RNA sequence: GACCGAUGAUGAAAAAUACCUGAUCAGAGCAUCAGAAGACCUUCCAGUCUGCCUGAUGCAUGAUCUUCUUACUUCUGAGA
Numbered sequence: 001g002a003c004c005g006a007u008g009a010u011g012a013a014a015a016a017u018a019c020c021u022g023a024u025c026a027g028a029g030c031a032u033c034a035g036a037a038g039a040c041c042u043u044c045c046a047g048u049c050u051g052c053c054u055g056a057u058g059c060a061u062g063a064u065c066u067u068c069u070u071a072c073u074u075c076u077g078a079g080a
Base pairs, nucleotide, nucleotide: 029059030058031057032056033055037050038049039048040047
The record is an 80-nucleotide sequence from Suricata suricatta, which matches "Small nucleolar RNA U2-19" in Rfam. Rfam links the family to the GO terms RNA processing and nucleolus. Pairs were carried over by alignment from the consensus structure, which is taken from published work.